[Rfam]
RNA sequence: CGAUAGCGAAUUUGUAUGGAGUUGGAAUGUUUGCCUACGUUUGCCGCUGUUCCAACUGCGUACAAAUUUGAGUAA
Numbered sequence: 001c002g003a004u005a006g007c008g009a010a011u012u013u014g015u016a017u018g019g020a021g022u023u024g025g026a027a028u029g030u031u032u033g034c035c036u037a038c039g040u041u042u043g044c045c046g047c048u049g050u051u052c053c054a055a056c057u058g059c060g061u062a063c064a065a066a067u068u069u070g071a072g073u074a075a
Base pairs, nucleotide, nucleotide: 008069009068010067011066012065013064014063015062016061018059020057021056022055023054024053025052026051027050028049029048034043
Annotation:
The family of this 75-nucleotide RNA from Bombyx mori is "mir-2807 microRNA precursor family". Rfam 15.1 lists 5,120 matches to the family in 8 species. NCBI's taxonomy places the organism under Eukaryota, Eumetazoa, Aparaglossata, Panorpida, Bombyx. On this family, see Cai et al., Funct Integr Genomics 2010: "Novel microRNAs in silkworm (Bombyx mori)".